[Rfam]
RNA sequence: AUGCAUUCCAUUCGCUGGAGAUAAGUAGGCAAUAAAAAAGCGGCUUUUCCAUAUUUUCAUGGGCUUUUUUGUUGUGCUUAUUUUCGAAAUGGGAUCAAACAUGGAUAGAUGAAGCAGGAAUAGCAGGCCUCCUUUUGCUAUACCUUUAUUUCCCCAUGCCUAUUCGUUGGUAAUGCAGACCUUAGCCCAUUAAUAUGGACCGAGGCCUGCAUUUUUUAU
Numbered sequence: 001a002u003g004c005a006u007u008c009c010a011u012u013c014g015c016u017g018g019a020g021a022u023a024a025g026u027a028g029g030c031a032a033u034a035a036a037a038a039a040g041c042g043g044c045u046u047u048u049c050c051a052u053a054u055u056u057u058c059a060u061g062g063g064c065u066u067u068u069u070u071g072u073u074g075u076g077c078u079u080a081u082u083u084u085c086g087a088a089a090u091g092g093g094a095u096c097a098a099a100c101a102u103g104g105a106u107a108g109a110u111g112a113a114g115c116a117g118g119a120a121u122a123g124c125a126g127g128c129c130u131c132c133u134u135u136u137g138c139u140a141u142a143c144c145u146u147u148a149u150u151u152c153c154c155c156a157u158g159c160c161u162a163u164u165c166g167u168u169g170g171u172a173a174u175g176c177a178g179a180c181c182u183u184a185g186c187c188c189a190u191u192a193a194u195a196u197g198g199a200c201c202g203a204g205g206c207c208u209g210c211a212u213u214u215u216u217u218a219u
Stems, first nucleotide, its partner, number of pairs: 006094007013086002019083008029075013049062004101149003108146002111144001114141001116139001124137003173212006180205002183202001185200001187198004
Rfam assigns this 219-nucleotide sequence from Paenibacillus montanisoli to the family "Enterococcus sRNA 1300". The organism belongs to Paenibacillus, within Bacteria. For this family Rfam cites "Small RNAs in vancomycin-resistant Enterococcus faecium involved in daptomycin response and resistance" (Sinel et al., Sci Rep, 2017). It scores 68 bits against the family's covariance model. Expressed in mid and late exponential phases of growth. Expression remained uniform under daptomycin exposure. The family's consensus secondary structure was predicted with RNAfold.